[Rfam]
Rfam assigns this 200-nucleotide RNA sequence from Lodderomyces elongisporus to the family "U2 spliceosomal RNA". From the family's description: U2 is a small nuclear RNA (snRNA) component of the spliceosome (involved in pre-mRNA splicing). The family's consensus secondary structure is taken from published work.
RNA sequence: AUCUCUUUGCCAUUUGGCUUAGAUCCAGUGUAGUAUCUGUUCUUUUCAGUGUAAUAGCUGAAAUGUCAUCAUUGAUGGCAAAUACAAAUAUAAUUUUUUACAUUUAUUUUUGGAACAAAUGGUGGGAUUGGUUUCAAAUGGGCUUGCUCAUAAUCAUUCCCACACAGUGUCGUUGCCAUUACACGUUCAUCGAGGCUCCU
Numbered sequence: 001a002u003c004u005c006u007u008u009g010c011c012a013u014u015u016g017g018c019u020u021a022g023a024u025c026c027a028g029u030g031u032a033g034u035a036u037c038u039g040u041u042c043u044u045u046u047c048a049g050u051g052u053a054a055u056a057g058c059u060g061a062a063a064u065g066u067c068a069u070c071a072u073u074g075a076u077g078g079c080a081a082a083u084a085c086a087a088a089u090a091u092a093a094u095u096u097u098u099u100a101c102a103u104u105u106a107u108u109u110u111u112g113g114a115a116c117a118a119a120u121g122g123u124g125g126g127a128u129u130g131g132u133u134u135c136a137a138a139u140g141g142g143c144u145u146g147c148u149c150a151u152a153a154u155c156a157u158u159c160c161c162a163c164a165c166a167g168u169g170u171c172g173u174u175g176c177c178a179u180u181a182c183a184c185g186u187u188c189a190u191c192g193a194g195g196c197u198c199c200u
Stems, first nucleotide, its partner, number of pairs: 004023003009018003044063006064080007124161004129156003139150004165192001167190003171185003

For this family Rfam cites "The uRNA database" (Zwieb, Nucleic Acids Res, 1997).
The source organism's lineage runs through Eukaryota, Opisthokonta, Fungi, Dikarya and Lodderomyces elongisporus.